[Rfam]
RNA sequence: UCCUUAUCAAGAGAAACGGAGGGACUGGCCCAAUGAUGUUUCAGCAACCAAGGUUUUAUACUUAUGGUGCUAAUUCCAGCAGGAUAUUUUCUGAAAGAUGAGGA
Numbered sequence: 001u002c003c004u005u006a007u008c009a010a011g012a013g014a015a016a017c018g019g020a021g022g023g024a025c026u027g028g029c030c031c032a033a034u035g036a037u038g039u040u041u042c043a044g045c046a047a048c049c050a051a052g053g054u055u056u057u058a059u060a061c062u063u064a065u066g067g068u069g070c071u072a073a074u075u076c077c078a079g080c081a082g083g084a085u086a087u088u089u090u091c092u093g094a095a096a097g098a099u100g101a102g103g104a
Base pairs, nucleotide, nucleotide: 001104002103003102004101005100006099007098008097013042014041015040016039017038021031022030023029025079026078027077028076043071044070045069046068048067049066050063051062052061075096080093081092082091083090084089
A member of the RNA family "SAM riboswitch aptamer (S box leader)" from Clostridium acetobutylicum, 104 nucleotides long.
From the family's description: The SAM riboswitch is found upstream of a number of genes which code for proteins involved in methionine or cysteine biosynthesis in Gram-positive bacteria.
It is one of the family's seed sequences.
Lineage of the source: Bacteria > Bacillati > Bacillota > Clostridium > Clostridium acetobutylicum.
Gene Ontology term of the family: regulation of gene expression.